[Rfam]
RNA: Bacterial RNase P class B
Organism: Pontibacillus yanchengensis
RNA sequence: AUACUUGGGUAAUCGCUGUAUGACUUGCUCAUGCAGAGGAAAGUCCAUGCUCACACAAGCUGAGAUGCUUGUAGUGUUCGUGCUUGACGAAACCAUAAGUCAAGGUAGUGUAACAGCUAACGGCAGAGAAAUGAUCUACGUCCAAACGGAUACGAUCAGAUUAUCUUGAAAGUGCCACAGUGACGGAGUUCCAUUGGAAACAAUGGAAGUGGAACGAGGUAAACCCCACGAGUGAGCAACCCAAAAUUAGGUAGGGGCACUUUUCUGAGGGAACGAAACCAACAGGAAAAGACAGGUUUUCACCUGUAGAUAGAUGAUUACCACCAGAGUACGAGGUUGACCGCCGUUUGCAGUACAAAGGUACAGAACAUGGCUUACAAAG
Numbered sequence: 001a002u003a004c005u006u007g008g009g010u011a012a013u014c015g016c017u018g019u020a021u022g023a024c025u026u027g028c029u030c031a032u033g034c035a036g037a038g039g040a041a042a043g044u045c046c047a048u049g050c051u052c053a054c055a056c057a058a059g060c061u062g063a064g065a066u067g068c069u070u071g072u073a074g075u076g077u078u079c080g081u082g083c084u085u086g087a088c089g090a091a092a093c094c095a096u097a098a099g100u101c102a103a104g105g106u107a108g109u110g111u112a113a114c115a116g117c118u119a120a121c122g123g124c125a126g127a128g129a130a131a132u133g134a135u136c137u138a139c140g141u142c143c144a145a146a147c148g149g150a151u152a153c154g155a156u157c158a159g160a161u162u163a164u165c166u167u168g169a170a171a172g173u174g175c176c177a178c179a180g181u182g183a184c185g186g187a188g189u190u191c192c193a194u195u196g197g198a199a200a201c202a203a204u205g206g207a208a209g210u211g212g213a214a215c216g217a218g219g220u221a222a223a224c225c226c227c228a229c230g231a232g233u234g235a236g237c238a239a240c241c242c243a244a245a246a247u248u249a250g251g252u253a254g255g256g257g258c259a260c261u262u263u264u265c266u267g268a269g270g271g272a273a274c275g276a277a278a279c280c281a282a283c284a285g286g287a288a289a290a291g292a293c294a295g296g297u298u299u300u301c302a303c304c305u306g307u308a309g310a311u312a313g314a315u316g317a318u319u320a321c322c323a324c325c326a327g328a329g330u331a332c333g334a335g336g337u338u339g340a341c342c343g344c345c346g347u348u349u350g351c352a353g354u355a356c357a358a359a360g361g362u363a364c365a366g367a368a369c370a371u372g373g374c375u376u377a378c379a380a381a382g
Base pairs, nucleotide, nucleotide: 004382005381006380007378008322009321010320011319012318013317014316016036017035018034019033020032021031041376042375043374045373046372047371048370049369050236051235052234053233054232055072056071057070058069059068060067078231079230080229081228082227083104084103085102086101087100088099105121106119107118108117109116122226123225125166126165127164133157134156135155136154140151141150142149172224173223174220175219176218189208190207191206192205193204194203195202196201240256241255242254260291261290262289263288264287265286266285292307293306294305295304296303297302324361325360329356330355331354332353